[Rfam]
RNA sequence: UUGAGCCCAAUUGCAGCUGCUGGACACUGCACAAGAUUAGACUUUGGAAAACUCUUGUGCGUGUGACAGCGGCUAUUGUUGGUGCUCAAAUGGCAACUA
Numbered sequence: 001u002u003g004a005g006c007c008c009a010a011u012u013g014c015a016g017c018u019g020c021u022g023g024a025c026a027c028u029g030c031a032c033a034a035g036a037u038u039a040g041a042c043u044u045u046g047g048a049a050a051a052c053u054c055u056u057g058u059g060c061g062u063g064u065g066a067c068a069g070c071g072g073c074u075a076u077u078g079u080u081g082g083u084g085c086u087c088a089a090a091u092g093g094c095a096a097c098u099a
Stems, first nucleotide, its partner, number of pairs: 005085002007082005015074008025063002028061006035054002
Shown here is a 99-nucleotide RNA from Frankliniella occidentalis, a member of the family "mir-210 microRNA precursor family".
For this family Rfam cites "Kaposi's sarcoma-associated herpesvirus expresses an array of viral microRNAs in latently infected cells" (Cai et al., Proc Natl Acad Sci U S A, 2005).
It scores 76 bits against the family's covariance model.